[Rfam]
RNA sequence: ACAUAUUACAGCGAUGGAGCUCGCUUAACGCUGCAAAGCUAAUAGCUCCUACCACCUU
Dot-bracket structure: .........[[[[..((((((]]]]....(((....)))....)))))).........
The record is a 58-nucleotide sequence from Desulfoscipio geothermicus, which matches "Fluoride riboswitch aptamer (crcB RNA motif)" in Rfam.
The match comes from Rfam's covariance-model search (34 bits).
The source organism's lineage runs through Bacteria, Clostridia, Desulfallaceae, Desulfoscipio and Desulfoscipio geothermicus.